Annotation:
Rfam assigns this 72-nucleotide sequence from Sarcophilus harrisii to the family "mir-129 microRNA precursor family". The family's consensus secondary structure was predicted with RNAalifold. The sequence is in the family's curated seed alignment. The organism belongs to Sarcophilus, within Eukaryota. A reference for the family is Lagos-Quintana et al. (2002), "Identification of tissue-specific microRNAs from mouse", Curr Biol.

RNA sequence: UUGGAUCUUUUUGCGGUCUGGGCUUGCUGUUCUAAUCAAUAGUCAGGAAGCCCUUACCCCAAAAAGUAUCUA
Numbered sequence: 001u002u003g004g005a006u007c008u009u010u011u012u013g014c015g016g017u018c019u020g021g022g023c024u025u026g027c028u029g030u031u032c033u034a035a036u037c038a039a040u041a042g043u044c045a046g047g048a049a050g051c052c053c054u055u056a057c058c059c060c061a062a063a064a065a066g067u068a069u070c071u072a
Stems, first nucleotide, its partner, number of pairs: 007066007015058003020053004025048001027046002